[Rfam]
RNA sequence: GAUUUUUUUUAUAUGAUGAAAUAACCAUGCAACAUAGAGUCAAGCUCUGAGUCAAAAAUGACAUGGGAAGAGAAUUGCCUUUUUAUACUGAACUAUUAAUAAUC
Numbered sequence: 001g002a003u004u005u006u007u008u009u010u011a012u013a014u015g016a017u018g019a020a021a022u023a024a025c026c027a028u029g030c031a032a033c034a035u036a037g038a039g040u041c042a043a044g045c046u047c048u049g050a051g052u053c054a055a056a057a058a059u060g061a062c063a064u065g066g067g068a069a070g071a072g073a074a075u076u077g078c079c080u081u082u083u084u085a086u087a088c089u090g091a092a093c094u095a096u097u098a099a100u101a102a103u104c
Base pairs, nucleotide, nucleotide: 001104002103003102004101006099